[Rfam]
RNA sequence: AAUAAAUUUAAGCAAACCUUCUGAAAGGAAGGGACGCAAAGCCGUGGGUCUAACGAUGAAAAAAUCUAUGAUUGCCAGGUUGCACUA
Dot-bracket structure: ...........((...((((((....))))))...))..((((.((((((....(((......)))...)))..)))))))......

The record is an 87-nucleotide sequence from Sporomusa acidovorans, which matches "c-di-GMP-I riboswitch aptamer" in Rfam.